Rfam assigns this 65-nucleotide RNA from Flavobacteriaceae bacterium R38 to the family "S15-Flavobacteria ribosomal protein leader". Lineage of the source: Bacteria > Pseudomonadati > Bacteroidota > Flavobacteriia > Flavobacteriaceae. A reference for the family is Eckert and Weinberg (2020), "Discovery of 20 novel ribosomal leader candidates in bacteria and archaea", BMC Microbiol. The match comes from Rfam's covariance-model search (74 bits).
RNA sequence: UAUAUUUGCAGCUUGAUAAAUAAAAUUAUCAUAUACAUAAAAAUCAUUUAAACAAUAUUGGCAUG
Numbered sequence: 001u002a003u004a005u006u007u008g009c010a011g012c013u014u015g016a017u018a019a020a021u022a023a024a025a026u027u028a029u030c031a032u033a034u035a036c037a038u039a040a041a042a043a044u045c046a047u048u049u050a051a052a053c054a055a056u057a058u059u060g061g062c063a064u065g
Base pairs, nucleotide, nucleotide: 014031015030016029017028018027019026

It is annotated as a cis-regulatory leader. Clan: Ribosomal Protein S15 Leader clan.